[Rfam]
RNA sequence: UUGCGGGCUGGCGAUGGGGUUCCGCCAUGUAACCGCCCUCGGGGCUGAUGACUCCUGCAAAAAA
Numbered sequence: 001u002u003g004c005g006g007g008c009u010g011g012c013g014a015u016g017g018g019g020u021u022c023c024g025c026c027a028u029g030u031a032a033c034c035g036c037c038c039u040c041g042g043g044g045c046u047g048a049u050g051a052c053u054c055c056u057g058c059a060a061a062a063a064a
Stems, first nucleotide, its partner, number of pairs: 010026004016055006035045003

Background
Shown here is a 64-nucleotide sequence, a member of the family "Fluoride riboswitch aptamer (crcB RNA motif)". The literature on the family includes a 2012 paper in Science by Baker et al., "Widespread genetic switches and toxicity resistance proteins for fluoride".